[Rfam]
Annotation:
Transposase-2 RNA: a 71-nucleotide RNA sequence. It is one of the family's seed sequences.

RNA sequence: GAAGCGCGAACCAAGCAGGCGCAUCAAGGCGCUGUGAGACUUGGAGCUGGUCUUGGCAACGAGAUCAUGCA
Numbered sequence: 001g002a003a004g005c006g007c008g009a010a011c012c013a014a015g016c017a018g019g020c021g022c023a024u025c026a027a028g029g030c031g032c033u034g035u036g037a038g039a040c041u042u043g044g045a046g047c048u049g050g051u052c053u054u055g056g057c058a059a060c061g062a063g064a065u066c067a068u069g070c071a
Stems, first nucleotide, its partner, number of pairs: 011044005018033005048067008